Shown here is a 151-nucleotide RNA sequence from Patulibacter medicamentivorans, a member of the family "c-di-AMP riboswitch aptamer (ydaO/yuaA leader)". The match comes from Rfam's covariance-model search (71 bits). The organism belongs to Patulibacter, within Bacteria. A reference for the family is Barrick et al. (2004), "New RNA motifs suggest an expanded scope for riboswitches in bacterial genetic control", Proc Natl Acad Sci U S A.
RNA sequence: CUCUGCGCGGAGCCGAAUUACCGAGUGACGUCUCGGUAAGCGGGGGAACCACACGUUCCUUGGGGCAAAUCCACACGCAAUAGCGGUGGAAGCGCUGGCUCUUUCUGCGCUCGCCCGUCAGCUAACCCCGUAGGCCGACGAAAGAGAGCAG
Number, nucleotide and partner (000 for none) at each position: 001c000002u000003c000004u000005g000006c000007g000008c000009g000010g000011a000012g135013c134014c133015g000016a000017a000018u039019u038020a037021c036022c035023g034024a033025g032026u000027g000028a000029c000030g000031u000032c025033u024034c023035g022036g021037u020038a019039a018040g131041c130042g129043g128044g127045g126046g000047a000048a000049c000050c062051a061052c000053a000054c000055g000056u000057u000058c000059c000060u000061u051062g050063g116064g115065g114066c000067a000068a000069a000070u000071c089072c088073a087074c086075a000076c000077g000078c000079a000080a000081u000082a000083g000084c000085g000086g074087u073088g072089g071090a000091a000092g110093c109094g108095c107096u000097g000098g000099c000100u000101c000102u000103u000104u000105c000106u000107g095108c094109g093110c092111u000112c000113g000114c065115c064116c063117g000118u000119c000120a000121g000122c000123u000124a000125a000126c045127c044128c043129c042130g041131u040132a000133g014134g013135c012136c000137g000138a000139c000140g000141a000142a000143a000144g000145a000146g000147a000148g000149c000150a000151g000